RNA sequence: GAAGGCCGGCCGCGGACGGGCGCCUCGCCAACCCGGUCAGGUCCGGAAGGAAGCAGCCGCAACGAGUUUCCGCCCGGGUCGUGUGUCGGUCUUCCAC
Numbered sequence: 001g002a003a004g005g006c007c008g009g010c011c012g013c014g015g016a017c018g019g020g021c022g023c024c025u026c027g028c029c030a031a032c033c034c035g036g037u038c039a040g041g042u043c044c045g046g047a048a049g050g051a052a053g054c055a056g057c058c059g060c061a062a063c064g065a066g067u068u069u070c071c072g073c074c075c076g077g078g079u080c081g082u083g084u085g086u087c088g089g090u091c092u093u094c095c096a097c
Base pairs, nucleotide, nucleotide: 004091005090006089007088008087009084011083012082013081014080017076018075019074020073021072022071024066025065026064027063034059035058036057037056042051043050044049
This 97-nucleotide RNA sequence from Roseomonas mucosa belongs to the Rfam family "Bacterial small signal recognition particle RNA". It is annotated as a non-coding RNA gene. The family is grouped with related families in Rfam's "SRP clan". From the family's description: The signal recognition particle (SRP) is a universally conserved ribonucleoprotein involved in the co-translational targeting of proteins to membranes.